This 73-nucleotide RNA from Syntrophotalea acetylenica belongs to the Rfam family "tRNA".
By type it is a transfer RNA.
NCBI's taxonomy places the organism under Bacteria, Pseudomonadati, Thermodesulfobacteriota, Syntrophotaleaceae, Syntrophotalea.
Rfam links the family to the GO term triplet codon-amino acid adaptor activity.
Rfam describes the family as follows. Transfer RNA (tRNA) molecules are approximately 80 nucleotides in length.
RNA sequence: UCCCUGGUAGCUCAGUAGGUAGAGCAGGUGGCUGUUAACCACCCUGUCGCUGGUUCGAGUCCGGCCCGGGGAG
Numbered sequence: 001u002c003c004c005u006g007g008u009a010g011c012u013c014a015g016u017a018g019g020u021a022g023a024g025c026a027g028g029u030g031g032c033u034g035u036u037a038a039c040c041a042c043c044c045u046g047u048c049g050c051u052g053g054u055u056c057g058a059g060u061c062c063g064g065c066c067c068g069g070g071g072a073g
Stems, first nucleotide, its partner, number of pairs: 001072007010025004027043005049065005